[Rfam]
The family of this 171-nucleotide RNA from Alligator mississippiensis is "Small nucleolar RNA SNORD97". Rfam links the family to the GO terms RNA processing and nucleolus. On this family, see Vitali et al., Nucleic Acids Res 2003: "Identification of 13 novel human modification guide RNAs". NCBI's taxonomy places the organism under Eukaryota, Amniota, Sauropsida, Alligatorinae, Alligator.
RNA sequence: UUGCCCAAUGAUUAUAGCAAGACGCGUUAUUACGAGGACUAAUGCUGGAACUCUACUUACUCUUAUUCUUCCCUUUCUUCUUUGUCCUUCUUUGCUUUCACUUUUUAUCCCUCACCUAUUUUCUUGGGGUGUCCAGCGUCCUAUGAACAAGAUUAUGAGAUAUGAGGGCAA
Numbered sequence: 001u002u003g004c005c006c007a008a009u010g011a012u013u014a015u016a017g018c019a020a021g022a023c024g025c026g027u028u029a030u031u032a033c034g035a036g037g038a039c040u041a042a043u044g045c046u047g048g049a050a051c052u053c054u055a056c057u058u059a060c061u062c063u064u065a066u067u068c069u070u071c072c073c074u075u076u077c078u079u080c081u082u083u084g085u086c087c088u089u090c091u092u093u094g095c096u097u098u099c100a101c102u103u104u105u106u107a108u109c110c111c112u113c114a115c116c117u118a119u120u121u122u123c124u125u126g127g128g129g130u131g132u133c134c135a136g137c138g139u140c141c142u143a144u145g146a147a148c149a150a151g152a153u154u155a156u157g158a159g160a161u162a163u164g165a166g167g168g169c170a171a
Stems, first nucleotide, its partner, number of pairs: 001171006035054003040049001